The family of this 70-nucleotide sequence from Medicago truncatula is "MIR2629 microRNA precursor family". The source organism's lineage runs through Eukaryota, Embryophyta, Gunneridae, Fabales and Medicago. Rfam links the family to the GO terms RISC complex and miRNA-mediated post-transcriptional gene silencing.
RNA sequence: UGUUCAGUACACAUCGGCAGUUAACUGCCAAGGUUUCCAUAAAAUUCGGCAGUUAACUGCCGAUGGACAU
Numbered sequence: 001u002g003u004u005c006a007g008u009a010c011a012c013a014u015c016g017g018c019a020g021u022u023a024a025c026u027g028c029c030a031a032g033g034u035u036u037c038c039a040u041a042a043a044a045u046u047c048g049g050c051a052g053u054u055a056a057c058u059g060c061c062g063a064u065g066g067a068c069a070u
Stems, first nucleotide, its partner, number of pairs: 012065001014063015

A search with the family's covariance model found it, with a score of 61 bits.